[Rfam]
Rfam assigns this 106-nucleotide RNA from Desulfosporosinus orientis to the family "Group II catalytic intron D1-D4-2".
Taxonomically the source falls in Desulfosporosinus orientis (Bacteria, Bacillati, Clostridia, Eubacteriales).
A search with the family's covariance model found it, with a score of 80 bits.
For this family Rfam cites "The ins and outs of group II introns" (Bonen and Vogel, Trends Genet, 2001).
About the family: Group II introns are found in rRNA, tRNA and mRNA of organelles in fungi, plants and protists, and also in mRNA in bacteria.
The base pairs follow the family's consensus structure.
Its family is annotated with Group II intron splicing in the Gene Ontology.

RNA sequence: GAGGGUAGGUCCCUUGGAACCGGCAUGCAGGUGCAGGUUUCAAACCACCAUAGGGUGCUGCAAUCAAAAGUUGUGGUGCUGAACGCGUAUGCUAUAGCAGUCAGGU
Numbered sequence: 001g002a003g004g005g006u007a008g009g010u011c012c013c014u015u016g017g018a019a020c021c022g023g024c025a026u027g028c029a030g031g032u033g034c035a036g037g038u039u040u041c042a043a044a045c046c047a048c049c050a051u052a053g054g055g056u057g058c059u060g061c062a063a064u065c066a067a068a069a070g071u072u073g074u075g076g077u078g079c080u081g082a083a084c085g086c087g088u089a090u091g092c093u094a095u096a097g098c099a100g101u102c103a104g105g106u
Stems, first nucleotide, its partner, number of pairs: 001015005016041006023034004049091004053086001054080002057077003061073004